[Rfam]
RNA sequence: CCGUUAGGUGGUUGCAAUGACUGCUUAAUAGUUUCUCCUCUAUUUCUCCUUUGUAGACUUGGCACACAUUCUUAAGAAUGUGUGCAUUUUU
Numbered sequence: 001c002c003g004u005u006a007g008g009u010g011g012u013u014g015c016a017a018u019g020a021c022u023g024c025u026u027a028a029u030a031g032u033u034u035c036u037c038c039u040c041u042a043u044u045u046c047u048c049c050u051u052u053g054u055a056g057a058c059u060u061g062g063c064a065c066a067c068a069u070u071c072u073u074a075a076g077a078a079u080g081u082g083u084g085c086a087u088u089u090u091u
Stems, first nucleotide, its partner, number of pairs: 003029009039057005062085010